The record is a 161-nucleotide RNA from Parafrankia flexibilis, which matches "c-di-AMP riboswitch aptamer (ydaO/yuaA leader)" in Rfam.
It scores 65 bits against the family's covariance model.
About the family: This family represents a conserved RNA structure found upstream of the ydaO and yuaA genes in Bacillus subtilis and related genes in other bacteria.
[Rfam]
RNA sequence: UCCUAGCGACCGCCAGGGCAGAAGCGGGGGAACCAUGUUCCUCCGGAGAUCGCCGCACACCCGCGGCUCUCCUCGGGGUGAAGUCGGCCGCUCUGACGCGCCGACCGGGCUUCCCGGCCCGAACCCGACAGCUAACCUCGCAGGCGUACGGGAAGGAUCUU
Numbered sequence: 001u002c003c004u005a006g007c008g009a010c011c012g013c014c015a016g017g018g019c020a021g022a023a024g025c026g027g028g029g030g031a032a033c034c035a036u037g038u039u040c041c042u043c044c045g046g047a048g049a050u051c052g053c054c055g056c057a058c059a060c061c062c063g064c065g066g067c068u069c070u071c072c073u074c075g076g077g078g079u080g081a082a083g084u085c086g087g088c089c090g091c092u093c094u095g096a097c098g099c100g101c102c103g104a105c106c107g108g109g110c111u112u113c114c115c116g117g118c119c120c121g122a123a124c125c126c127g128a129c130a131g132c133u134a135a136c137c138u139c140g141c142a143g144g145c146g147u148a149c150g151g152g153a154a155g156g157a158u159c160u161u
Stems, first nucleotide, its partner, number of pairs: 001022002024141006034075001076126003084104004107120004